This 202-nucleotide RNA from Babesia bovis belongs to the Rfam family "ACEA small nucleolar RNA U3". Pairs were carried over by alignment from the consensus structure, which is taken from published work.
RNA sequence: UCGACUGUGCUCGUACAGGAUCACUUCUAUAGUGAAUCUGUUUACCGGUGCCAUCAGCGACAGUUGCUGUCAACAGCCGUGAUGAUGAGUUGUACGUUCUGCCGUUCACGGAAUUAAGUUAUCAAAUUUUUUAAUUUGCUUGACGUCGAUGAAGUAUGUUAACCUAUAUGGUGACAGCGGUAUUGAACGAAUCUGAACGGCA
Numbered sequence: 001u002c003g004a005c006u007g008u009g010c011u012c013g014u015a016c017a018g019g020a021u022c023a024c025u026u027c028u029a030u031a032g033u034g035a036a037u038c039u040g041u042u043u044a045c046c047g048g049u050g051c052c053a054u055c056a057g058c059g060a061c062a063g064u065u066g067c068u069g070u071c072a073a074c075a076g077c078c079g080u081g082a083u084g085a086u087g088a089g090u091u092g093u094a095c096g097u098u099c100u101g102c103c104g105u106u107c108a109c110g111g112a113a114u115u116a117a118g119u120u121a122u123c124a125a126a127u128u129u130u131u132u133a134a135u136u137u138g139c140u141u142g143a144c145g146u147c148g149a150u151g152a153a154g155u156a157u158g159u160u161a162a163c164c165u166a167u168a169u170g171g172u173g174a175c176a177g178c179g180g181u182a183u184u185g186a187a188c189g190a191a192u193c194u195g196a197a198c199g200g201c202a
Stems, first nucleotide, its partner, number of pairs: 001040001003038001006035001008034004017028004047071004052066002055063001076201005095189005100182005108155002118144002121140001157176004162172001

The organism belongs to Babesia, within Eukaryota. Small nucleolar RNAs (snoRNAs) are involved in the processing and modification of rRNA in the nucleolus. There are two main classes of snoRNAs: the box C/D class, and the box H/ACA class. U3 snoRNA is a member of the box C/D class. Indeed, the box C/D element is a subset of the six short sequence elements found in all U3 snoRNAs, namely boxes A, A', B, C, C', and D. The U3 snoRNA secondary structure is characterised by a small 5' domain (with boxes A and A'), and a larger 3' domain (with boxes B, C, C', and D), the two domains being linked by a single-stranded hinge. Boxes B and C form the B/C motif, which appears to be exclusive to U3 snoRNAs, and boxes C' and D form the C'/D motif. The latter is functionally similar to the C/D motifs found in other snoRNAs. The 5' domain and the hinge region act as a pre-rRNA-binding domain. The 3' domain has conserved protein-binding sites. Both the box B/C and box C'/D motifs are sufficient for nuclear retention of U3 snoRNA. The box C'/D motif is also necessary for nucleolar localisation, stability and hyper-methylation of U3 snoRNA. Both box B/C and C'/D motifs are involved in specific protein interactions and are necessary for the rRNA processing functions of U3 snoRNA. The family has 28 seed sequences and 2,156 matches in Rfam 15.1. For this family Rfam cites "Comparative analysis of eukaryotic U3 snoRNA" (Marz and Stadler, RNA Biol, 2010).